[Rfam]
RNA sequence: ACUCGGGAAAGGAGGUGGUUCGGCAGAUGUACACAUACCGGACGCGAGAGGUGACUGCGGGCUAGGGCCCGUCAUCACACUCAGUGCGGUGCCGGACCAGCGCGUGUGGGUAUCACCCACGUCCUCGGGUCAACCGGGGAGCGCGUAGCCGGCCAAUUCCACACAGUCACCCGACCCGCGGGCCGCCGGUACGUCCGGCCGGCUUCCUCCGCUCCGGCGGCAGGAACCAUGGCCCGCGGGUUGUCCGUU
Numbered sequence: 001a002c003u004c005g006g007g008a009a010a011g012g013a014g015g016u017g018g019u020u021c022g023g024c025a026g027a028u029g030u031a032c033a034c035a036u037a038c039c040g041g042a043c044g045c046g047a048g049a050g051g052u053g054a055c056u057g058c059g060g061g062c063u064a065g066g067g068c069c070c071g072u073c074a075u076c077a078c079a080c081u082c083a084g085u086g087c088g089g090u091g092c093c094g095g096a097c098c099a100g101c102g103c104g105u106g107u108g109g110g111u112a113u114c115a116c117c118c119a120c121g122u123c124c125u126c127g128g129g130u131c132a133a134c135c136g137g138g139g140a141g142c143g144c145g146u147a148g149c150c151g152g153c154c155a156a157u158u159c160c161a162c163a164c165a166g167u168c169a170c171c172c173g174a175c176c177c178g179c180g181g182g183c184c185g186c187c188g189g190u191a192c193g194u195c196c197g198g199c200c201g202g203c204u205u206c207c208u209c210c211g212c213u214c215c216g217g218c219g220g221c222a223g224g225a226a227c228c229a230u231g232g233c234c235c236g237c238g239g240g241u242u243g244u245c246c247g248u249u
Stems, first nucleotide, its partner, number of pairs: 015058005060154004065149001172243013185203006
Dot-bracket structure: ..............(((((..................................))))).((((.(...................................................................................).)))).................(((((((((((((((((((.......))))))...........................)))))))))))))......
Rfam assigns this 249-nucleotide sequence from Streptomyces sp. TS71-3 to the family "Actinobacteria sRNA Ms_IGR-5". The match comes from Rfam's covariance-model search (79 bits). NCBI's taxonomy places the organism under Bacteria, Actinomycetota, Kitasatosporales, Streptomycetaceae, Streptomyces. The pairing is the family consensus, mapped onto this sequence.